[Rfam]
RNA sequence: AAGUUGCAUAGAGAGAGGAAUUCCUCAGCAACCUAGUUGCCAACUAAGGUGCUUUUUGAUGUGGUUAUACAACAAAAAUUGGCGUUC
Numbered sequence: 001a002a003g004u005u006g007c008a009u010a011g012a013g014a015g016a017g018g019a020a021u022u023c024c025u026c027a028g029c030a031a032c033c034u035a036g037u038u039g040c041c042a043a044c045u046a047a048g049g050u051g052c053u054u055u056u057u058g059a060u061g062u063g064g065u066u067a068u069a070c071a072a073c074a075a076a077a078a079u080u081g082g083c084g085u086u087c
Base pairs, nucleotide, nucleotide: 006062007061008060009059015026016025017024018023027053028052029051032049033048034047035045036044037043041082064073065072066071
SAM-I/IV (S-adenosyl methionine) riboswitch aptamer: an 87-nucleotide RNA sequence. Rfam's curators put it in the seed alignment.